[Rfam]
RNA sequence: ACUCUCAUUCGGAGAGUUUAUGCAGUUACCCACUGCGUACCAGCUAGAACCUGGACUAACAUAAAGGAAAAACAAAUG
Number, nucleotide and partner (000 for none) at each position: 001a017002c016003u015004c014005u013006c012007a000008u000009u000010c000011g000012g006013a005014g004015a003016g002017u001018u000019u039020a038021u037022g036023c035024a034025g033026u000027u000028a000029c000030c000031c000032a000033c025034u024035g023036c022037g021038u020039a019040c054041c053042a052043g051044c000045u000046a000047g000048a000049a000050c000051c043052u042053g041054g040055a000056c000057u000058a000059a000060c000061a000062u000063a000064a000065a000066g000067g000068a000069a000070a000071a000072a000073c000074a000075a000076a000077u000078g000
This 78-nucleotide RNA belongs to the Rfam family "freshwater-2 RNA". It is annotated as a cis-regulatory element.